A member of the RNA family "ALIL pseudoknot" from Rhizobacter sp. Root29, 117 nucleotides long. On this family, see Mazauric et al., J Biol Chem 2008: "Apical loop-internal loop RNA pseudoknots: a new type of stimulator of -1 translational frameshifting in bacteria". The base pairs follow the family's consensus structure, which is taken from published work. It scores 109 bits against the family's covariance model. The source organism's lineage runs through Bacteria, Pseudomonadati, Betaproteobacteria, Sphaerotilaceae and Rhizobacter.

[Rfam]
RNA sequence: CGCGUUUUUCGCCAAGGCGGAGCUCGACCGCCAUCACAAGAAGUGAGAGCGUUCAUCGACGCGCAGCGCGGACGCUACGGGGUCGAGCCGAUCUGCAGGGCGUUGCAGGUUGCCCCA
Numbered sequence: 001c002g003c004g005u006u007u008u009u010c011g012c013c014a015a016g017g018c019g020g021a022g023c024u025c026g027a028c029c030g031c032c033a034u035c036a037c038a039a040g041a042a043g044u045g046a047g048a049g050c051g052u053u054c055a056u057c058g059a060c061g062c063g064c065a066g067c068g069c070g071g072a073c074g075c076u077a078c079g080g081g082g083u084c085g086a087g088c089c090g091a092u093c094u095g096c097a098g099g100g101c102g103u104u105g106c107a108g109g110u111u112g113c114c115c116c117a
Stems, first nucleotide, its partner, number of pairs: 016032005079116004089112002092109007